Description: Rfam assigns this 114-nucleotide sequence from Aedes aegypti to the family "Potassium channel RNA editing signal". About the family: This family represents a group of sequences related to the human potassium channel Kv1.1 hairpin element which directs the efficient modification of an adenosine to inosine by an adenosine deaminase acting on RNA (ADAR).
RNA sequence: GUCGGCUACGGGGACAUGGCACCGAAAACCUACGUCGGCAUGUUCGUUGGAGCGCUUUGUGCUUUGGCCGGUGUGCUGACGAUUGCACUUCCCGUUCCCGUCAUUGUCAGCAAC
Numbered sequence: 001g002u003c004g005g006c007u008a009c010g011g012g013g014a015c016a017u018g019g020c021a022c023c024g025a026a027a028a029c030c031u032a033c034g035u036c037g038g039c040a041u042g043u044u045c046g047u048u049g050g051a052g053c054g055c056u057u058u059g060u061g062c063u064u065u066g067g068c069c070g071g072u073g074u075g076c077u078g079a080c081g082a083u084u085g086c087a088c089u090u091c092c093c094g095u096u097c098c099c100g101u102c103a104u105u106g107u108c109a110g111c112a113a114c
Base pairs, nucleotide, nucleotide: 001114002113004111008107009106010105011104013102014101015100018097019096021095022094037077038076039075040074049063050062